[Rfam]
RNA: RNase MRP
RNA sequence: UCGUCAGUGGAAGAAGUGAUCGGACUACGGGCUUGUCGAAGCUUAGGUCCAGGAAAGUCGCCGGGCCAACCUAUCCGCAGAGAUGCAGCCUCGGUAACGAGAGAGUCUUGUGCUUGGAGAGACAAAACCGGCUGAGACGCGUGUGUGGUGGAGCCUUCACGGUCUCUCCAGCAAAGAUAUUCAUGGCCAAUGUAACAGUAAUUCACUUGGGUCCUUUACAGGGAUUUACCCGAACGGGGCUUACUUCCACUGACA
Numbered sequence: 001u002c003g004u005c006a007g008u009g010g011a012a013g014a015a016g017u018g019a020u021c022g023g024a025c026u027a028c029g030g031g032c033u034u035g036u037c038g039a040a041g042c043u044u045a046g047g048u049c050c051a052g053g054a055a056a057g058u059c060g061c062c063g064g065g066c067c068a069a070c071c072u073a074u075c076c077g078c079a080g081a082g083a084u085g086c087a088g089c090c091u092c093g094g095u096a097a098c099g100a101g102a103g104a105g106u107c108u109u110g111u112g113c114u115u116g117g118a119g120a121g122a123c124a125a126a127a128c129c130g131g132c133u134g135a136g137a138c139g140c141g142u143g144u145g146u147g148g149u150g151g152a153g154c155c156u157u158c159a160c161g162g163u164c165u166c167u168c169c170a171g172c173a174a175a176g177a178u179a180u181u182c183a184u185g186g187c188c189a190a191u192g193u194a195a196c197a198g199u200a201a202u203u204c205a206c207u208u209g210g211g212u213c214c215u216u217u218a219c220a221g222g223g224a225u226u227u228a229c230c231c232g233a234a235c236g237g238g239g240c241u242u243a244c245u246u247c248c249a250c251u252g253a254c255a
Stems, first nucleotide, its partner, number of pairs: 003254009014208006022050004029044006055242003059239001061237002077086003090101004105178003111173003115170007130155003139149002210226006